Source information
The family of this 77-nucleotide sequence from Chiloscyllium punctatum is "Small nucleolar RNA SNORD19". The family is grouped with related families in Rfam's "SNORD19 clan". It is annotated as a C/D-box small nucleolar RNA.

RNA sequence: GAGAAAUGAGGAUAAUUUAAAUGGUCAGAAAGUGUAUGUUUGACUGCUAAAGAUCCAACUCUGAUCUCACUGGCUUC
Numbered sequence: 001g002a003g004a005a006a007u008g009a010g011g012a013u014a015a016u017u018u019a020a021a022u023g024g025u026c027a028g029a030a031a032g033u034g035u036a037u038g039u040u041u042g043a044c045u046g047c048u049a050a051a052g053a054u055c056c057a058a059c060u061c062u063g064a065u066c067u068c069a070c071u072g073g074c075u076u077c
Stems, first nucleotide, its partner, number of pairs: 001068004